This 139-nucleotide sequence from Prevotella sp. CAG:1185 belongs to the Rfam family "Bacteroidete tryptophan peptide leader RNA". Rfam links the family to the GO terms S-adenosylmethionine metabolic process and regulation of gene expression. Rfam classes the family as a cis-regulatory leader.
[Rfam]
RNA sequence: AUAACAAUAAAAAUAACAUUAUGAAUCACUCUAUGGUAAAUACAUUCUUCUGGUGGUGCCGCUUACUACUUCAAAAGUCGUAAGGGAAUCAGUCGUAUGUAUAUACCAAUAAAAGGAUAUUAUAGUUAGAAAGGCUGUC
Numbered sequence: 001a002u003a004a005c006a007a008u009a010a011a012a013a014u015a016a017c018a019u020u021a022u023g024a025a026u027c028a029c030u031c032u033a034u035g036g037u038a039a040a041u042a043c044a045u046u047c048u049u050c051u052g053g054u055g056g057u058g059c060c061g062c063u064u065a066c067u068a069c070u071u072c073a074a075a076a077g078u079c080g081u082a083a084g085g086g087a088a089u090c091a092g093u094c095g096u097a098u099g100u101a102u103a104u105a106c107c108a109a110u111a112a113a114a115g116g117a118u119a120u121u122a123u124a125g126u127u128a129g130a131a132a133g134g135c136u137g138u139c
Stems, first nucleotide, its partner, number of pairs: 036106003040102006047095001050092003056089002059086002066080001068078003
Dot-bracket structure: ...................................(((.((((((.(..(((...((.((.....(.(((.....))).)....)).)))))..).)))))).))).................................